[Rfam]
RNA sequence: CACUAUUCUCAGGGCGGGGCGAAAUUCCCCACCGGCGGUAAGCAGUUUCAGCUGCAAGCCCGCGAGCGCCUUCUUAGGGAAGGGUCAAGCAGAUCAGGUUUGAGUCCUGAGCCGACGGUUAAAGUCCGGAUGAAAGAGAUUGUGC
Numbered sequence: 001c002a003c004u005a006u007u008c009u010c011a012g013g014g015c016g017g018g019g020c021g022a023a024a025u026u027c028c029c030c031a032c033c034g035g036c037g038g039u040a041a042g043c044a045g046u047u048u049c050a051g052c053u054g055c056a057a058g059c060c061c062g063c064g065a066g067c068g069c070c071u072u073c074u075u076a077g078g079g080a081a082g083g084g085u086c087a088a089g090c091a092g093a094u095c096a097g098g099u100u101u102g103a104g105u106c107c108u109g110a111g112c113c114g115a116c117g118g119u120u121a122a123a124g125u126c127c128g129g130a131u132g133a134a135a136g137a138g139a140u141u142g143u144g145c
Stems, first nucleotide, its partner, number of pairs: 004142002007139004017029003031125002033114002035063004058112002066090002094110005116128003
A member of the RNA family "FMN riboswitch aptamer (RFN element)" from Antarcticimicrobium sediminis, 145 nucleotides long. Taxonomically the source falls in Antarcticimicrobium (Bacteria, Pseudomonadota, Rhodobacterales, Paracoccaceae). From the family's description: The RFN element is a highly conserved domain that is found frequently in the 5'-untranslated regions of prokaryotic mRNAs that encode for flavin mononucleotide (FMN) biosynthesis and transport proteins. A reference for the family is Vitreschak et al. (2002), "Regulation of riboflavin biosynthesis and transport genes in bacteria by transcriptional and translational attenuation", Nucleic Acids Res. Gene Ontology term of the family: FMN binding.